[Rfam]
RNA sequence: UAGCCUGAAAUGAUGUUACGAACUCAUGUCUCUUCUCUGAGAUGCAUCGUGGAGACAGCUGGAUGCACUUCUGAUCAGGCUU
Numbered sequence: 001u002a003g004c005c006u007g008a009a010a011u012g013a014u015g016u017u018a019c020g021a022a023c024u025c026a027u028g029u030c031u032c033u034u035c036u037c038u039g040a041g042a043u044g045c046a047u048c049g050u051g052g053a054g055a056c057a058g059c060u061g062g063a064u065g066c067a068c069u070u071c072u073g074a075u076c077a078g079g080c081u082u
Base pairs, nucleotide, nucleotide: 002081003080004079005078
A member of the RNA family "Small nucleolar RNA SNORD111" from Phalacrocorax carbo, 82 nucleotides long. Lineage of the source: Eukaryota > Chordata > Amniota > Neoaves > Phalacrocorax. The base pairs follow the family's consensus structure, which was predicted with RNAalifold. The literature on the family includes a 2002 paper in Mol Cell Biol by Galardi et al., "Purified box C/D snoRNPs are able to reproduce site-specific 2'-O-methylation of target RNA in vitro".